RNA sequence: CAAAGCAAGAAGAAGCGCCCGCUUCUCACCUGUAUCGUCAGCAUACGUUCAGGUUACUGAAUUAAUACAUCGAUGUGAUGAAGUGUGGGCGAUUUUUCUCCCGCGCUUUUUUUAUGCU
Dot-bracket structure: ..........((((((....)))))).(((...(.(((......))).)..))).............................((((((.((....)).)))))).............